[Rfam]
RNA sequence: AAUCAUGAGCGCCAACAUCAAGCCCUGGCUUGUUGGCCGGCAACCCUCUCGUGCGUAGCGGGGUGCUCCAGGUGAUGAUUCGGCCGUACCGAAGAACAGCGGUUCGGCAAGUACCGCGU
Dot-bracket structure: ((((....(.((((((....((......)).)))))))(((..(((.((.......))..))).))).........))))..((((.((((........)))).))))...........
RNA: SAM (S-adenosyl methionine) riboswitch aptamer